[Rfam]
The record is an 84-nucleotide RNA sequence from Asticcacaulis sp. AC402, which matches "tRNA" in Rfam.
Rfam classes the family as a transfer RNA.
The base pairs follow the family's consensus structure, which is taken from published work.
The organism belongs to Asticcacaulis, within Bacteria.
Rfam describes the family as follows. Transfer RNA (tRNA) molecules are approximately 80 nucleotides in length.
RNA sequence: GCCCAGGUGGCGGAAUUGGUAGACGCGCUGGCUUCAGGUGCCAGUGAUGUAACAGUCGUGAAGGUUCGAGUCCUUUCCUGGGCA
Numbered sequence: 001g002c003c004c005a006g007g008u009g010g011c012g013g014a015a016u017u018g019g020u021a022g023a024c025g026c027g028c029u030g031g032c033u034u035c036a037g038g039u040g041c042c043a044g045u046g047a048u049g050u051a052a053c054a055g056u057c058g059u060g061a062a063g064g065u066u067c068g069a070g071u072c073c074u075u076u077c078c079u080g081g082g083c084a
Stems, first nucleotide, its partner, number of pairs: 001083007010026003028044005060076005